[Rfam]
The family of this 102-nucleotide RNA sequence from Clostridium botulinum is "Purine riboswitch aptamer". The base pairs follow the family's consensus structure, which is taken from published work. The literature on the family includes a 2003 paper in Cell by Mandal et al., "Riboswitches Control Fundamental Biochemical Pathways in Bacillus subtilis and Other Bacteria".
Nucleotides: 102
Base pairs, nucleotide, nucleotide: 018088019087020086021085022084023083024082025081029049030048031047032046033045034044059077060076061075062074063073064072
Number, partner (000 for none) and nucleotide at each position: 001000a002000a003000a004000a005000c006000a007000a008000a009000u010000g011000a012000a013000u014000a015000u016000a017000u018088c019087a020086u021085c022084c023083a024082u025081a026000u027000a028000a029049u030048c031047u032046c033045a034044a035000u036000a037000a038000u039000a040000a041000g042000g043000u044034u045033u046032g047031a048030g049029a050000g051000u052000c053000u054000c055000u056000a057000c058000g059077a060076g061075g062074g063073a064072a065000c066000c067000a068000u069000a070000a071000a072064u073063u074062c075061c076060c077059u078000g079000u080000c081025u082024a083023u084022g085021g086020a087019u088018g089000a090000a091000u092000c093000u094000u095000a096000g097000c098000u099000a100000u101000g102000c